[Rfam]
RNA sequence: GGACGGUUAGCUCAGUUGGGAGAGCACCGCCCUUACAAGGCGGGGGUCACUGGUUCAAGCCCAGUACCGUCCA
Numbered sequence: 001g002g003a004c005g006g007u008u009a010g011c012u013c014a015g016u017u018g019g020g021a022g023a024g025c026a027c028c029g030c031c032c033u034u035a036c037a038a039g040g041c042g043g044g045g046g047u048c049a050c051u052g053g054u055u056c057a058a059g060c061c062c063a064g065u066a067c068c069g070u071c072c073a
Stems, first nucleotide, its partner, number of pairs: 001072007010025004027043005049065005
Shown here is a 73-nucleotide sequence from Thalassotalea marina, a member of the family "tRNA". It is annotated as a transfer RNA. Lineage of the source: Bacteria > Pseudomonadati > Gammaproteobacteria > Alteromonadales > Thalassotalea.